[Rfam]
RNA sequence: AUAGCUCGGGUGACGAUCUCCUCCUCCCAACGUCCCCGACAAGGAUUGGCAGCCCCUCCUCCUCCCAAACUGCCAAUAGCUAUCAGCAACGCCCGCCGGAUCUCCUCCCCCGGCGGGCGUUGCUU
Numbered sequence: 001a002u003a004g005c006u007c008g009g010g011u012g013a014c015g016a017u018c019u020c021c022u023c024c025u026c027c028c029a030a031c032g033u034c035c036c037c038g039a040c041a042a043g044g045a046u047u048g049g050c051a052g053c054c055c056c057u058c059c060u061c062c063u064c065c066c067a068a069a070c071u072g073c074c075a076a077u078a079g080c081u082a083u084c085a086g087c088a089a090c091g092c093c094c095g096c097c098g099g100a101u102c103u104c105c106u107c108c109c110c111c112g113g114c115g116g117g118c119g120u121u122g123c124u125u
Base pairs, nucleotide, nucleotide: 006039007038008037010035012034013033014032015031045077046076047075048074049073050072051071052070089120090119091118092117093116094115095114096113097112098111099110